[Rfam]
RNA sequence: ACGAUGUUCCGCUGUAUAGAAUAAAUAUGCAUGAGCGUCUG
Dot-bracket structure: ..(((((((...((((((.......)))))).)))))))..

Rfam assigns this 41-nucleotide RNA from Bacillus coahuilensis to the family "Ribosomal protein L19 leader". On this family, see Zengel and Lindahl, Prog Nucleic Acid Res Mol Biol 1994: "Diverse mechanisms for regulating ribosomal protein synthesis in Escherichia coli". Taxonomically the source falls in Bacillus coahuilensis (Bacteria, Bacillati, Bacilli, Bacillaceae). From the family's description: This family is a putative r-protein leader autoregulatory structure found in B. subtilis and other low-GC Gram-positive bacteria. It is located in the 5' untranslated regions of mRNAs encoding ribosomal protein L19 (rplS). The base pairs follow the family's consensus structure, which was predicted with CMfinder.